Shown here is a 75-nucleotide RNA from Phenylobacterium deserti, a member of the family "Makes More Granules Regulator RNA (mmgR)". A reference for the family is Corbino et al. (2005), "Evidence for a second class of S-adenosylmethionine riboswitches and other regulatory RNA motifs in alpha-proteobacteria", Genome Biol. About the family: SuhB later renamed mmgR (makes more granules regulator) was a putative non-coding RNA found multiple times in the Agrobacterium tumefaciens genome and related alpha-proteobacteria. Other non-coding RNAs uncovered in the same analysis include: speF, ybhL, metA, and serC.Several studies inSinorhizobium meliloti showed that suhB element is indeed a non-coding RNA:firstly it was detected on Northern blot and called Sm8RNA, secondly in an RNAseq study referred to as SmelC689.The mutant phenotype's (strain lacking the small RNA) cytoplasm contains higher content of polyhydroxybutyrate (PBH)storage granules than wild type strain. The sRNA is required to limit the PBH intracellular accumulation when the nitrogen-fixing Sinorhizobium meliloti is under condition of surplus carbon in relation to nitrogen. It has been renamed to mmgR. Further study confirmed that mmgR fine-tunes the regulation of PBH storage.Northern blot confirmed the expression of the sRNA in other rhizobia species. By type it is a small RNA. The pairing is the family consensus, mapped onto this sequence. The organism belongs to Phenylobacterium, within Bacteria.
[Rfam]
RNA sequence: CCAGCGUGCCCAUCCUGGGCGUUUCCUCCCUAUGACUUCCGCCGGACCUUCGGGUCCGGCUUUUUUUUGGCCUGU
Numbered sequence: 001c002c003a004g005c006g007u008g009c010c011c012a013u014c015c016u017g018g019g020c021g022u023u024u025c026c027u028c029c030c031u032a033u034g035a036c037u038u039c040c041g042c043c044g045g046a047c048c049u050u051c052g053g054g055u056c057c058g059g060c061u062u063u064u065u066u067u068u069g070g071c072c073u074g075u
Base pairs, nucleotide, nucleotide: 008020009019010018011017041060042059043058044057045056046055047054048053